[Rfam]
RNA sequence: CUCGCUCAAGGGGCGCUGCGACCUGACUUCGUGCCAUGCACGCAACCCGGGCCAGGCUUGGCGAUGACACCGCACAACGGCGCCCGGCAACC
Numbered sequence: 001c002u003c004g005c006u007c008a009a010g011g012g013g014c015g016c017u018g019c020g021a022c023c024u025g026a027c028u029u030c031g032u033g034c035c036a037u038g039c040a041c042g043c044a045a046c047c048c049g050g051g052c053c054a055g056g057c058u059u060g061g062c063g064a065u066g067a068c069a070c071c072g073c074a075c076a077a078c079g080g081c082g083c084c085c086g087g088c089a090a091c092c
Stems, first nucleotide, its partner, number of pairs: 002064004007060003022051004
Rfam assigns this 92-nucleotide RNA from Pseudoxanthomonas spadix to the family "SAH (S-adenosyl-L-homocysteine) riboswitch aptamer".